RNA sequence: CUGCACGAUGCCUCCCGGGCUUCUCAGAAUUAACAGUGACGCGAAAGCCCCAAUGCAUGUGCUAAAUCGUCGCCGUUCGUGUUGCAGUUUAGCCCCUUUUUUUUUCACGGCUGAUCUGUGUCAAAACAACGGCUAAAUUC
Numbered sequence: 001c002u003g004c005a006c007g008a009u010g011c012c013u014c015c016c017g018g019g020c021u022u023c024u025c026a027g028a029a030u031u032a033a034c035a036g037u038g039a040c041g042c043g044a045a046a047g048c049c050c051c052a053a054u055g056c057a058u059g060u061g062c063u064a065a066a067u068c069g070u071c072g073c074c075g076u077u078c079g080u081g082u083u084g085c086a087g088u089u090u091a092g093c094c095c096c097u098u099u100u101u102u103u104u105u106c107a108c109g110g111c112u113g114a115u116c117u118g119u120g121u122c123a124a125a126a127c128a129a130c131g132g133c134u135a136a137a138u139u140c
Stems, first nucleotide, its partner, number of pairs: 003062005010056002017050005022044002025041001072133006080123002083120005092111003
Dot-bracket structure: ..(((((..((.....(((((((.(...............).)).)))))....)).))))).........((((((..((.(((((....(((..............)))....))))).))....)))))).......
Shown here is a 140-nucleotide RNA from Abrus precatorius, a member of the family "small nucleolar RNA snoR134". The family has 5 seed sequences and 792 matches in Rfam 15.1. The family's RNA type in Rfam is H/ACA-box small nucleolar RNA. The organism belongs to Abrus, within Eukaryota.